[Rfam]
RNA sequence: GAGUGUUAAUGAUGGACUAAUUCUAAACUCUGUAGACGGGAUCAGUCUUGAUGCCUCACUC
Numbered sequence: 001g002a003g004u005g006u007u008a009a010u011g012a013u014g015g016a017c018u019a020a021u022u023c024u025a026a027a028c029u030c031u032g033u034a035g036a037c038g039g040g041a042u043c044a045g046u047c048u049u050g051a052u053g054c055c056u057c058a059c060u061c
Base pairs, nucleotide, nucleotide: 001061002060003059004058005057014048015047016046017045018044020042021041022040023039029036030035
RNA: Selenocysteine insertion sequence 1
Organism: Astyanax mexicanus